[Rfam]
RNA sequence: UUCCAGAUAACACUGAAUUCGGAUGAGUGCUUGAGAGGACUCGACUUCUAGCACCAUUUGAAUUCAGUGCAUCUGGCA
Numbered sequence: 001u002u003c004c005a006g007a008u009a010a011c012a013c014u015g016a017a018u019u020c021g022g023a024u025g026a027g028u029g030c031u032u033g034a035g036a037g038g039a040c041u042c043g044a045c046u047u048c049u050a051g052c053a054c055c056a057u058u059u060g061a062a063u064u065c066a067g068u069g070c071a072u073c074u075g076g077c078a
Stems, first nucleotide, its partner, number of pairs: 012068011024056002027054002030051002033048002035045001